Rfam assigns this 197-nucleotide RNA sequence from Paenibacillus zeisoli to the family "Lysine riboswitch aptamer". The source organism's lineage runs through Bacteria, Bacillati, Bacillota, Caryophanales and Paenibacillus. It scores 99 bits against the family's covariance model. Its family is annotated with lysine biosynthetic process in the Gene Ontology.

[Rfam]
RNA sequence: AGGUGAGGUAGAGGUCGCGGCAGUUGAAGAGUAGACUGGGGAAAGCGUAUAAGGACGCUGUUGAUCCCGGAGUGAAAGGCAGUGCCGCCGAAGCAGAGUUGUUCCUCUAUGCCAAUUCUGCUGGGGCUGUUACCGAAAGGGACAGAACUGUCACGUUCAUCUAUACCAACGGAUGAACGUGUUGAGCUAUCUUGAUU
Numbered sequence: 001a002g003g004u005g006a007g008g009u010a011g012a013g014g015u016c017g018c019g020g021c022a023g024u025u026g027a028a029g030a031g032u033a034g035a036c037u038g039g040g041g042a043a044a045g046c047g048u049a050u051a052a053g054g055a056c057g058c059u060g061u062u063g064a065u066c067c068c069g070g071a072g073u074g075a076a077a078g079g080c081a082g083u084g085c086c087g088c089c090g091a092a093g094c095a096g097a098g099u100u101g102u103u104c105c106u107c108u109a110u111g112c113c114a115a116u117u118c119u120g121c122u123g124g125g126g127c128u129g130u131u132a133c134c135g136a137a138a139g140g141g142a143c144a145g146a147a148c149u150g151u152c153a154c155g156u157u158c159a160u161c162u163a164u165a166c167c168a169a170c171g172g173a174u175g176a177a178c179g180u181g182u183u184g185a186g187c188u189a190u191c192u193u194g195a196u197u
Stems, first nucleotide, its partner, number of pairs: 006192006017088006024082003034073001036070006092122010103111001123149002127145005133139001152181011